[Rfam]
RNA sequence: GGUCGCGAGCUUGAGGCCGCAGCAGAAGGGCUCACGAUGCGGCCCCAUCAGAUUCCAAUGAAUCUGUGAAUUUGGCU
Numbered sequence: 001g002g003u004c005g006c007g008a009g010c011u012u013g014a015g016g017c018c019g020c021a022g023c024a025g026a027a028g029g030g031c032u033c034a035c036g037a038u039g040c041g042g043c044c045c046c047a048u049c050a051g052a053u054u055c056c057a058a059u060g061a062a063u064c065u066g067u068g069a070a071u072u073u074g075g076c077u
Base pairs, nucleotide, nucleotide: 013046015044016043017042018041021077022076023075025073026072027071028040030038049066050065051064052063053062054061055060
Dot-bracket structure: ............[.[[[[..(((.((((.(.......).)]]]].]..(((((((....)))))))....))).)))
A member of the RNA family "Mammalian CPEB3 ribozyme" from Crocodylus porosus, 77 nucleotides long. The organism belongs to Crocodylus, within Eukaryota.